[Rfam]
RNA sequence: CUGCGACGCCUCUUUGGGCGUUUCCUCCCUAGACUUCGGGCCGCCCUCGUGGCGGCCUUUUUUUGUCCGUUU
Numbered sequence: 001c002u003g004c005g006a007c008g009c010c011u012c013u014u015u016g017g018g019c020g021u022u023u024c025c026u027c028c029c030u031a032g033a034c035u036u037c038g039g040g041c042c043g044c045c046c047u048c049g050u051g052g053c054g055g056c057c058u059u060u061u062u063u064u065g066u067c068c069g070u071u072u
Stems, first nucleotide, its partner, number of pairs: 008019004039057007